[Rfam]
Description:
The record is a 92-nucleotide RNA sequence from Paenibacillus rigui, which matches "c-di-GMP-I-GGC riboswitch aptamer" in Rfam. The match comes from Rfam's covariance-model search (65 bits). Lineage of the source: Bacteria > Bacillati > Bacilli > Caryophanales > Paenibacillus.

RNA sequence: ACCGAUAAAGGCAAACCUGUCGAAAGGCAGGGACGCAAAGCUAAAGGGACUUCCCCUUCUCCAUUUGAAGGUAAGUCAGCCAGCCACCGAAA
Number, nucleotide and partner (000 for none) at each position: 001a000002c000003c089004g088005a000006u000007a000008a000009a000010g000011g036012c035013a000014a000015a000016c031017c030018u029019g028020u027021c026022g000023a000024a000025a000026g021027g020028c019029a018030g017031g016032g000033a000034c079035g012036c011037a000038a000039a000040g084041c083042u082043a000044a000045a000046g081047g080048g077049a076050c075051u074052u073053c000054c000055c000056c000057u000058u000059c000060u000061c000062c000063a000064u000065u000066u000067g000068a000069a000070g000071g000072u000073a052074a051075g050076u049077c048078a000079g034080c047081c046082a042083g041084c040085c000086a000087c000088c004089g003090a000091a000092a000